This 79-nucleotide RNA from Zea mays belongs to the Rfam family "Small nucleolar RNA R160". Rfam 15.1 lists 799 matches to the family in 221 species. Rfam links the family to the GO terms RNA processing and nucleolus. It is annotated as a C/D-box small nucleolar RNA. Rfam's curators write: snoR160 is a C/D box small nucleolar RNA, which acts as a methylation guide for 25S ribosomal RNA in plants. snoR160 has been alternatively named snoZ270 in rice. A search with the family's covariance model found it, with a score of 54 bits.

[Rfam]
RNA sequence: AGCGAAAUGAGGAGACUGAAACAUCUGAAUGUUUUUAUGUGGUGAAAACACGUGUAGUCUUCAAAGUUCUCUGAUUUCU
Numbered sequence: 001a002g003c004g005a006a007a008u009g010a011g012g013a014g015a016c017u018g019a020a021a022c023a024u025c026u027g028a029a030u031g032u033u034u035u036u037a038u039g040u041g042g043u044g045a046a047a048a049c050a051c052g053u054g055u056a057g058u059c060u061u062c063a064a065a066g067u068u069c070u071c072u073g074a075u076u077u078c079u
Base pairs, nucleotide, nucleotide: 001079002078004076005075